[Rfam]
RNA sequence: GCACUGAAACGGCACCCCCGUGCGAAAGCCGGGCCCGCAAAGUCACCGGUCUACCGGUACCGAGAGCAUGUCUCGGCACCCACGACAGCGGGACUGCCACG
Numbered sequence: 001g002c003a004c005u006g007a008a009a010c011g012g013c014a015c016c017c018c019c020g021u022g023c024g025a026a027a028g029c030c031g032g033g034c035c036c037g038c039a040a041a042g043u044c045a046c047c048g049g050u051c052u053a054c055c056g057g058u059a060c061c062g063a064g065a066g067c068a069u070g071u072c073u074c075g076g077c078a079c080c081c082a083c084g085a086c087a088g089c090g091g092g093a094c095u096g097c098c099a100c101g
Base pairs, nucleotide, nucleotide: 012038013037017033018032019031020030022029023028041095042094043093044092046091047090048089049086050085051084056080057079058078
RNA: c-di-GMP-I riboswitch aptamer